[Rfam]
RNA sequence: UGAUCUCCACAUAGAGCGUGUGGAGGGUAAACAAAAGAAUGCUCGCAGAGA
Numbered sequence: 001u002g003a004u005c006u007c008c009a010c011a012u013a014g015a016g017c018g019u020g021u022g023g024a025g026g027g028u029a030a031a032c033a034a035a036a037g038a039a040u041g042c043u044c045g046c047a048g049a050g051a
Stems, first nucleotide, its partner, number of pairs: 006024006014044004